[Rfam]
RNA sequence: GGCACAAUCUCGAAGUAGAGUAGUUUGGUAGAGUCAGAUGACCCUUCUGAUCUACUCUACUUCAAGCUCGCGCCC
Numbered sequence: 001g002g003c004a005c006a007a008u009c010u011c012g013a014a015g016u017a018g019a020g021u022a023g024u025u026u027g028g029u030a031g032a033g034u035c036a037g038a039u040g041a042c043c044c045u046u047c048u049g050a051u052c053u054a055c056u057c058u059a060c061u062u063c064a065a066g067c068u069c070g071c072g073c074c075c
Base pairs, nucleotide, nucleotide: 001074002073003072005070007068009066012063013062014061015060016059017058018057019056020055021054022053023052025050026049027048028047030045033042034041035040
mir-5928 microRNA precursor family: a 75-nucleotide sequence from Haemonchus placei.
The organism belongs to Haemonchus, within Eukaryota.
Gene Ontology terms of the family: miRNA-mediated post-transcriptional gene silencing and RISC complex.